[Rfam]
The family of this 154-nucleotide sequence from Effusibacillus dendaii is "Guanidine-I riboswitch aptamer". About the family: This family represents a conserved RNA structure found upstream of the ykkC and yxkD genes in Bacillus subtilis and related genes in other bacteria. The function of this family is unclear although it has been suggested that it may function to switch on efflux pumps and detoxification systems in response to harmful environmental molecules.

RNA sequence: CAAAGUGUUUUCUAGGGUUCCGCUCAACCGGCCCGACUUUAAGCAAUCUUCCACCCCCUUAUUUAGCUGAAGUCGCCGGUUGAGGUCAGGUCCGAGAGAAGACAGCUUUUGCGCCGAAGCAAAAGUGACACGGAGGGAAAAAAGCCCGGGAGAG
Numbered sequence: 001c002a003a004a005g006u007g008u009u010u011u012c013u014a015g016g017g018u019u020c021c022g023c024u025c026a027a028c029c030g031g032c033c034c035g036a037c038u039u040u041a042a043g044c045a046a047u048c049u050u051c052c053a054c055c056c057c058c059u060u061a062u063u064u065a066g067c068u069g070a071a072g073u074c075g076c077c078g079g080u081u082g083a084g085g086u087c088a089g090g091u092c093c094g095a096g097a098g099a100a101g102a103c104a105g106c107u108u109u110u111g112c113g114c115c116g117a118a119g120c121a122a123a124a125g126u127g128a129c130a131c132g133g134a135g136g137g138a139a140a141a142a143a144g145c146c147c148g149g150g151a152g153a154g
Base pairs, nucleotide, nucleotide: 007103008102009101010100011099012098015093016092020090021089022087023084024083025082026081027080028079029078030077031076032075105126106125107124108123109122110121111120129149131152135147136146137145